[Rfam]
RNA sequence: CGCUGAUAUGGGUAACUAUAUCGGUGAUUAAGCAGAAGUCAGCAGACGGCAUAGUAGCCAAAUGCACAGCGUAAUGGCUGGGACACGGUGAAGGCC
Number, nucleotide and partner (000 for none) at each position: 001c026002g025003c000004u023005g022006a021007u020008a019009u018010g017011g016012g000013u000014a000015a000016c011017u010018a009019u008020a007021u006022c005023g004024g000025u002026g001027a000028u000029u000030a000031a000032g000033c000034a000035g000036a000037a000038g047039u046040c045041a000042g000043c000044a000045g040046a039047c038048g096049g095050c094051a000052u000053a000054g000055u000056a000057g089058c088059c087060a000061a000062a000063u000064g000065c000066a000067c000068a000069g078070c000071g000072u000073a000074a000075u000076g000077g000078c069079u000080g000081g000082g000083a000084c000085a000086c000087g059088g058089u057090g000091a000092a000093g000094g050095c049096c048
The family of this 96-nucleotide RNA from Oleispira antarctica is "Group II catalytic intron D1-D4-1". Rfam 15.1 lists 2,508 matches to the family in 1,144 species. Group II introns are found in rRNA, tRNA and mRNA of organelles in fungi, plants and protists, and also in mRNA in bacteria.